[Rfam]
RNA sequence: CCCGCGGCCAGACGGAAAGACCCCGUGCACCUUAACUACAGCCUAACAUUGGAUUUUGGGCUAUGAUGUGUAGGAUAGGUGGGAGGCUAAGAAGCGGGGACGCCAGUUCCCGUGGAGCCAUCCUUGAAAUACCACCCUUCAUAGUCUAGAGUCCUAACCUUGAGCCGUAAUCCGGUUUAGGGACAGUGUUAGGUGGGUAGUUUGACUGGGGCGGUCGCCUCCUAAAAGGUAACGGAGGCGCGCAAAGGUCUCCUCAGGCGGAUUGGAAACCCGCCGUUGAGUGUAAAGGCAUAAGGAGGCUUGACUGUGAGGCCCACAAGCCGAGCAGGUGCGAAAGCAGGCCUUAGUGAUCCGGCGGUUCCGUAUGGAAGGGCCGUCGCUCAUCGGAUAAAAGGUACGCCGGGGAUAACAGGCUUAUCUCCCCCAAGAGUCCACAUCGACGGGGAGGUUUGGCACCUCGAUGUCGGCUCAUCCCAUCCUGGGGCUGGAGAAGGUCCCAAGGGUCGGGCUGUUCGCCCGUUAAAGGGGUACGUGAGCUGGGUUUAAAACGUCGCGAGACAGUUUGGUCCCUAUCUGCCGCGGGCGCA
Numbered sequence: 001c002c003c004g005c006g007g008c009c010a011g012a013c014g015g016a017a018a019g020a021c022c023c024c025g026u027g028c029a030c031c032u033u034a035a036c037u038a039c040a041g042c043c044u045a046a047c048a049u050u051g052g053a054u055u056u057u058g059g060g061c062u063a064u065g066a067u068g069u070g071u072a073g074g075a076u077a078g079g080u081g082g083g084a085g086g087c088u089a090a091g092a093a094g095c096g097g098g099g100a101c102g103c104c105a106g107u108u109c110c111c112g113u114g115g116a117g118c119c120a121u122c123c124u125u126g127a128a129a130u131a132c133c134a135c136c137c138u139u140c141a142u143a144g145u146c147u148a149g150a151g152u153c154c155u156a157a158c159c160u161u162g163a164g165c166c167g168u169a170a171u172c173c174g175g176u177u178u179a180g181g182g183a184c185a186g187u188g189u190u191a192g193g194u195g196g197g198u199a200g201u202u203u204g205a206c207u208g209g210g211g212c213g214g215u216c217g218c219c220u221c222c223u224a225a226a227a228g229g230u231a232a233c234g235g236a237g238g239c240g241c242g243c244a245a246a247g248g249u250c251u252c253c254u255c256a257g258g259c260g261g262a263u264u265g266g267a268a269a270c271c272c273g274c275c276g277u278u279g280a281g282u283g284u285a286a287a288g289g290c291a292u293a294a295g296g297a298g299g300c301u302u303g304a305c306u307g308u309g310a311g312g313c314c315c316a317c318a319a320g321c322c323g324a325g326c327a328g329g330u331g332c333g334a335a336a337g338c339a340g341g342c343c344u345u346a347g348u349g350a351u352c353c354g355g356c357g358g359u360u361c362c363g364u365a366u367g368g369a370a371g372g373g374c375c376g377u378c379g380c381u382c383a384u385c386g387g388a389u390a391a392a393a394g395g396u397a398c399g400c401c402g403g404g405g406a407u408a409a410c411a412g413g414c415u416u417a418u419c420u421c422c423c424c425c426a427a428g429a430g431u432c433c434a435c436a437u438c439g440a441c442g443g444g445g446a447g448g449u450u451u452g453g454c455a456c457c458u459c460g461a462u463g464u465c466g467g468c469u470c471a472u473c474c475c476a477u478c479c480u481g482g483g484g485c486u487g488g489a490g491a492a493g494g495u496c497c498c499a500a501g502g503g504u505c506g507g508g509c510u511g512u513u514c515g516c517c518c519g520u521u522a523a524a525g526g527g528g529u530a531c532g533u534g535a536g537c538u539g540g541g542u543u544u545a546a547a548a549c550g551u552c553g554c555g556a557g558a559c560a561g562u563u564u565g566g567u568c569c570c571u572a573u574c575u576g577c578c579g580c581g582g583g584c585g586c587a
Stems, first nucleotide, its partner, number of pairs: 001583008010575003014570002022404004027400002029396005035201004042193007051154016068137001078136005085119003094113008158181003162178006204216004217239006240385001242342002248300006254280002257275005281290002305328004311322003330339003353379007361372002413454003417451001418448007428438002465540001466538004470532001471529005478503002481498006505519005546564004550559003